[Rfam]
RNA sequence: CUCAGAUACGGCGACAUGGUUCCGCACACGCCCACGGGGAAGAUCGUGGGCGGCGUGUGUUCCCUCUCGGGCGUGUUGGUGAUCGCCCUGCCCGUGCCUGUCAUUGUGUCCAAC
Numbered sequence: 001c002u003c004a005g006a007u008a009c010g011g012c013g014a015c016a017u018g019g020u021u022c023c024g025c026a027c028a029c030g031c032c033c034a035c036g037g038g039g040a041a042g043a044u045c046g047u048g049g050g051c052g053g054c055g056u057g058u059g060u061u062c063c064c065u066c067u068c069g070g071g072c073g074u075g076u077u078g079g080u081g082a083u084c085g086c087c088c089u090g091c092c093c094g095u096g097c098c099u100g101u102c103a104u105u106g107u108g109u110c111c112a113a114c
Stems, first nucleotide, its partner, number of pairs: 002113001005110001007108005013102004018097001021094001037077002040074001049063002
Rfam assigns this 114-nucleotide sequence from Portunus trituberculatus to the family "Potassium channel RNA editing signal". Pairs were carried over by alignment from the consensus structure, which is taken from published work.